[Rfam]
RNA sequence: AGGCCAUAGGAUGAAGUGAGCGGGCCUAACCAGCCCUGGAAAGUCCCCGGGCCCCCCUUGCGCAGCGAUGCGCCCACGGAGACGUGGACGGCCCACGAGCCUGCUCUCCCUGCCCUUCUGGGGGUUGGGGGGCUGAGACGUGUGUGUGGAGCCCAUUUCAGGGAGCGGGCUCUGGGUCAAAUGGCCGAACUCUCUCACAGUUAUUCACUUGGUCCAUGUAUGGACUAACAGAACGGGGCUUACACUCCUGUGGCA
Numbered sequence: 001a002g003g004c005c006a007u008a009g010g011a012u013g014a015a016g017u018g019a020g021c022g023g024g025c026c027u028a029a030c031c032a033g034c035c036c037u038g039g040a041a042a043g044u045c046c047c048c049g050g051g052c053c054c055c056c057c058u059u060g061c062g063c064a065g066c067g068a069u070g071c072g073c074c075c076a077c078g079g080a081g082a083c084g085u086g087g088a089c090g091g092c093c094c095a096c097g098a099g100c101c102u103g104c105u106c107u108c109c110c111u112g113c114c115c116u117u118c119u120g121g122g123g124g125u126u127g128g129g130g131g132g133c134u135g136a137g138a139c140g141u142g143u144g145u146g147u148g149g150a151g152c153c154c155a156u157u158u159c160a161g162g163g164a165g166c167g168g169g170c171u172c173u174g175g176g177u178c179a180a181a182u183g184g185c186c187g188a189a190c191u192c193u194c195u196c197a198c199a200g201u202u203a204u205u206c207a208c209u210u211g212g213u214c215c216a217u218g219u220a221u222g223g224a225c226u227a228a229c230a231g232a233a234c235g236g237g238g239c240u241u242a243c244a245c246u247c248c249u250g251u252g253g254c255a
Base pairs, nucleotide, nucleotide: 003254004253005252006251007250008249009248010247011246014210015209016208017207018206019205022036023035024034025033041241042240043239045238046237047236048235061072062071063070064069074087075086076085077084078083109168110167114163118161119160120159121158130154131153132152133151140147141146212225213224214223215222216221

About this RNA: The record is a 255-nucleotide RNA from Digitaria exilis, which matches "RNase MRP" in Rfam. For this family Rfam cites "Secondary structure of RNase MRP RNA as predicted by phylogenetic comparison" (Schmitt et al., FASEB J, 1993). The family's consensus secondary structure is taken from published work. Taxonomically the source falls in Digitaria (Eukaryota, Liliopsida, commelinids, Poales).